The record is a 133-nucleotide RNA sequence from Eurypyga helias, which matches "Small nucleolar RNA SNORA55" in Rfam. Rfam 15.1 lists 1,476 matches to the family in 616 species. The match comes from Rfam's covariance-model search (58 bits). The source organism's lineage runs through Eukaryota, Craniata, Gnathostomata, Saurischia and Eurypyga. The family's RNA type in Rfam is H/ACA-box small nucleolar RNA.

[Rfam]
RNA sequence: GCAUCUGAAUCUUUCCCAGCUCCUUGCGACACGUAACGCUGGGCUGGGACAUGGGAUGCGACAGGAGAGCAGAGGGAAUCCAGGCAAGCUCGCUCUGCCCCGGUGGGACUUGUCUGUAGCCUCUGCAGCGUCU
Dot-bracket structure: (((((.......((((.((..((.................)).)))))).....))))).........((((((.......(((((((......(((......)))..))))))).....)))))).......